[Rfam]
RNA sequence: UGGACCAAUGAUGACAAUUGGUGGCGUAUGAGUCAUAGAUGAUGAAUAUUACACGUCUGAAACUCUGAGGUCCAA
Numbered sequence: 001u002g003g004a005c006c007a008a009u010g011a012u013g014a015c016a017a018u019u020g021g022u023g024g025c026g027u028a029u030g031a032g033u034c035a036u037a038g039a040u041g042a043u044g045a046a047u048a049u050u051a052c053a054c055g056u057c058u059g060a061a062a063c064u065c066u067g068a069g070g071u072c073c074a075a
Base pairs, nucleotide, nucleotide: 002073003072004071005070006069
Dot-bracket structure: .(((((..............................................................)))))..